Nitrogen stress-induced RNA 1: a 63-nucleotide RNA from Nostoc sp. PCC 7524.
Rfam classes the family as a small RNA.
A search with the family's covariance model found it, with a score of 49 bits.
The family has 17 seed sequences and 962 matches in Rfam 15.1.
RNA sequence: UAGUGAAUACACCCUGAUAAAUAACUUCCCUAGUUGGCUAAAACCUGACUAGGGGCUUUUUUU
Numbered sequence: 001u002a003g004u005g006a007a008u009a010c011a012c013c014c015u016g017a018u019a020a021a022u023a024a025c026u027u028c029c030c031u032a033g034u035u036g037g038c039u040a041a042a043a044c045c046u047g048a049c050u051a052g053g054g055g056c057u058u059u060u061u062u063u
Base pairs, nucleotide, nucleotide: 003012004011027055028054029053030052031051032050033049034048035047036045037044
Dot-bracket structure: ..((......))..............(((((((((((......)).)))))))))........